[Rfam]
RNA sequence: AGCAAAAUUAGGAAGUUAUACAAUCUGAUGCUGUACCAUUGAUAAUACUUGGAUGUUCUUCAAAGUUUUCUUGUUGCU
Numbered sequence: 001a002g003c004a005a006a007a008u009u010a011g012g013a014a015g016u017u018a019u020a021c022a023a024u025c026u027g028a029u030g031c032u033g034u035a036c037c038a039u040u041g042a043u044a045a046u047a048c049u050u051g052g053a054u055g056u057u058c059u060u061c062a063a064a065g066u067u068u069u070c071u072u073g074u075u076g077c078u
Stems, first nucleotide, its partner, number of pairs: 001078005